The record is a 62-nucleotide RNA sequence from Thermophagus xiamenensis, which matches "Fluoride riboswitch aptamer (crcB RNA motif)" in Rfam.
[Rfam]
RNA sequence: UUUGUACAGGGCAAUGAGGUCUGCCUUUAACCGCCAAAAUGGCUGAUGACUUCUACUUUAGU
Dot-bracket structure: .........[[[[..((((((]]]].......(((.....)))....)))))).........
Numbered sequence: 001u002u003u004g005u006a007c008a009g010g011g012c013a014a015u016g017a018g019g020u021c022u023g024c025c026u027u028u029a030a031c032c033g034c035c036a037a038a039a040u041g042g043c044u045g046a047u048g049a050c051u052u053c054u055a056c057u058u059u060a061g062u
Stems, first nucleotide, its partner, number of pairs: 010025004016053006033043003